[Rfam]
RNA sequence: GAAGAGAUGGCAAGAUGUUGGCAUAGCUGUUAAUGUUUAUGGGCCUGCUAUGCCUCCAUAUUGCCAUUUCUG
Numbered sequence: 001g002a003a004g005a006g007a008u009g010g011c012a013a014g015a016u017g018u019u020g021g022c023a024u025a026g027c028u029g030u031u032a033a034u035g036u037u038u039a040u041g042g043g044c045c046u047g048c049u050a051u052g053c054c055u056c057c058a059u060a061u062u063g064c065c066a067u068u069u070c071u072g
Base pairs, nucleotide, nucleotide: 003071004070005069006068007067008066009065010064011063012062013061015059016058017057020054021053022052023051024050025049026048027047
RNA: mir-31 microRNA precursor family
Organism: Danio rerio